[Rfam]
RNA sequence: AAAAAAGCAAUGAUAGAGAUAAGUACUUACUCCCCUCUGAUUAAUAGAGAGUCUGUAAAGCUGGAAGCAGAUAUCAAGGGACAAUGGAAUUGGGCUCUGGAGCAAUCAAGACAUAUCAUUAUGUCGACGUAUUCUAGGCGUUAACUGGACAAAAGUGAUCUCAUAUUCGUGAGAUAAUAAGGGUGGCACCGCGGUUUAAUCGUCCCUUUU
Numbered sequence: 001a002a003a004a005a006a007g008c009a010a011u012g013a014u015a016g017a018g019a020u021a022a023g024u025a026c027u028u029a030c031u032c033c034c035c036u037c038u039g040a041u042u043a044a045u046a047g048a049g050a051g052u053c054u055g056u057a058a059a060g061c062u063g064g065a066a067g068c069a070g071a072u073a074u075c076a077a078g079g080g081a082c083a084a085u086g087g088a089a090u091u092g093g094g095c096u097c098u099g100g101a102g103c104a105a106u107c108a109a110g111a112c113a114u115a116u117c118a119u120u121a122u123g124u125c126g127a128c129g130u131a132u133u134c135u136a137g138g139c140g141u142u143a144a145c146u147g148g149a150c151a152a153a154a155g156u157g158a159u160c161u162c163a164u165a166u167u168c169g170u171g172a173g174a175u176a177a178u179a180a181g182g183g184u185g186g187c188a189c190c191g192c193g194g195u196u197u198a199a200u201c202g203u204c205c206c207u208u209u210u
Stems, first nucleotide, its partner, number of pairs: 007103002015098004026086001028084001031081001039075003051072006106126001108122001128140003158175007180207004191203005

The family of this 210-nucleotide RNA from Paraliobacillus quinghaiensis is "T-box leader". On this family, see Grundy et al., J Bacteriol 1994: "Interaction between the acceptor end of tRNA and the T box stimulates antitermination in the Bacillus subtilis tyrS gene: a new role for the discriminator base". The source organism's lineage runs through Bacteria, Bacillota, Caryophanales, Bacillaceae and Paraliobacillus.